Shown here is a 142-nucleotide RNA from Parahoeflea halophila, a member of the family "Alphaproteobacterial sRNA BjrC1505".
[Rfam]
RNA sequence: UUUACUGUUAAGCCUCAGUUAAGCUUUACGAGUUAUUACUAAAGUUAUCCAGGAUUGCUGGAUUUGACAGCCUGGCCCUCGGCCAGACUGUUUGACGCCUCCCUGUUAAACUCUUGAGAGCCGCUGAUGCGGCUCUUUUUUU
Numbered sequence: 001u002u003u004a005c006u007g008u009u010a011a012g013c014c015u016c017a018g019u020u021a022a023g024c025u026u027u028a029c030g031a032g033u034u035a036u037u038a039c040u041a042a043a044g045u046u047a048u049c050c051a052g053g054a055u056u057g058c059u060g061g062a063u064u065u066g067a068c069a070g071c072c073u074g075g076c077c078c079u080c081g082g083c084c085a086g087a088c089u090g091u092u093u094g095a096c097g098c099c100u101c102c103c104u105g106u107u108a109a110a111c112u113c114u115u116g117a118g119a120g121c122c123g124c125u126g127a128u129g130c131g132g133c134u135c136u137u138u139u140u141u142u
Stems, first nucleotide, its partner, number of pairs: 001043004020035003025030001047063004070088001072086004094107004116137009
A search with the family's covariance model found it, with a score of 77 bits. For this family Rfam cites "Small RNAs of the Bradyrhizobium/Rhodopseudomonas lineage and their analysis" (Madhugiri et al., RNA Biol, 2012). Lineage of the source: Bacteria > Pseudomonadota > Alphaproteobacteria > Hyphomicrobiales > Parahoeflea.